[Rfam]
A member of the RNA family "Group I catalytic intron" from Bacillus phage SPbetaL4, 293 nucleotides long.
The source organism's lineage runs through Viruses, Duplodnaviria, Uroviricota, Caudoviricetes and Spbetavirus.
Its family is annotated with Group I intron splicing in the Gene Ontology.
Rfam 15.1 lists 5,602 matches to the family in 1,395 species.
RNA sequence: CUGAUAAUGUAAAUAAAGUGCAUCCAAAUGAACAUAUUUCAAAAGUGAAGUUUUCUAAUUUGUGUUAACUGUAGCACCUUCGGUCAGCAAUGAUCGUAGCAAACCCGUCUAAACGGUGAAACUCUAUUCAAUAGACAAUACCGUGCUAAACCGCAUCUUGCGGAAAUGCCGAACGACUAUCGAAACCACGCAUAAGCGUAAGGGAGUAGAGUACAUCGCAAGCAUAUGGCGAUGGAAACGGCGGGCGGCCUUAAAGGUCGAUGAUAUAGUCUAUUCUUACGAGUGAUCGUAAG
Numbered sequence: 001c002u003g004a005u006a007a008u009g010u011a012a013a014u015a016a017a018g019u020g021c022a023u024c025c026a027a028a029u030g031a032a033c034a035u036a037u038u039u040c041a042a043a044a045g046u047g048a049a050g051u052u053u054u055c056u057a058a059u060u061u062g063u064g065u066u067a068a069c070u071g072u073a074g075c076a077c078c079u080u081c082g083g084u085c086a087g088c089a090a091u092g093a094u095c096g097u098a099g100c101a102a103a104c105c106c107g108u109c110u111a112a113a114c115g116g117u118g119a120a121a122c123u124c125u126a127u128u129c130a131a132u133a134g135a136c137a138a139u140a141c142c143g144u145g146c147u148a149a150a151c152c153g154c155a156u157c158u159u160g161c162g163g164a165a166a167u168g169c170c171g172a173a174c175g176a177c178u179a180u181c182g183a184a185a186c187c188a189c190g191c192a193u194a195a196g197c198g199u200a201a202g203g204g205a206g207u208a209g210a211g212u213a214c215a216u217c218g219c220a221a222g223c224a225u226a227u228g229g230c231g232a233u234g235g236a237a238a239c240g241g242c243g244g245g246c247g248g249c250c251u252u253a254a255a256g257g258u259c260g261a262u263g264a265u266a267u268a269g270u271c272u273a274u275u276c277u278u279a280c281g282a283g284u285g286a287u288c289g290u291a292a293g
Stems, first nucleotide, its partner, number of pairs: 007023005030053004104245004109240001113144006123135005145169002151163005173272001175271005248258004278291005